Shown here is a 47-nucleotide sequence, a member of the family "DUF3800-XI RNA". The family's consensus secondary structure is taken from published work.

[Rfam]
RNA sequence: GGGGCUGGUCGUAAGACCCGGGUCCUACCAAGGCGAGGAGUUACCUC
Numbered sequence: 001g002g003g004g005c006u007g008g009u010c011g012u013a014a015g016a017c018c019c020g021g022g023u024c025c026u027a028c029c030a031a032g033g034c035g036a037g038g039a040g041u042u043a044c045c046u047c
Base pairs, nucleotide, nucleotide: 001026002025003024004023005022006021007018008017009016010015
Dot-bracket structure: ((((((((((....))))..)))))).....................

Rfam's curators write: Actinobacteria, Firmicutes, Proteobacteria, Spirochaetes (1 example). The sequence is in the family's curated seed alignment.